[Rfam]
RNA sequence: GGGGGGAGGCGGGAUCCUGGGCUGUGUCCCCGGCGCCCUGUGCUCCGGGUCCUGUGCUGUUGGAUUUGCGCUCCCGGCGGGAAGCUGCCU
Numbered sequence: 001g002g003g004g005g006g007a008g009g010c011g012g013g014a015u016c017c018u019g020g021g022c023u024g025u026g027u028c029c030c031c032g033g034c035g036c037c038c039u040g041u042g043c044u045c046c047g048g049g050u051c052c053u054g055u056g057c058u059g060u061u062g063g064a065u066u067u068g069c070g071c072u073c074c075c076g077g078c079g080g081g082a083a084g085c086u087g088c089c090u
Stems, first nucleotide, its partner, number of pairs: 001090003005086002010081001013078001016077002019074003023070004027064002030062001031059006040052001042051001044049001

The record is a 90-nucleotide RNA from Canis lupus, which matches "mir-8799 microRNA precursor family" in Rfam. The base pairs follow the family's consensus structure, which was predicted with RNAalifold.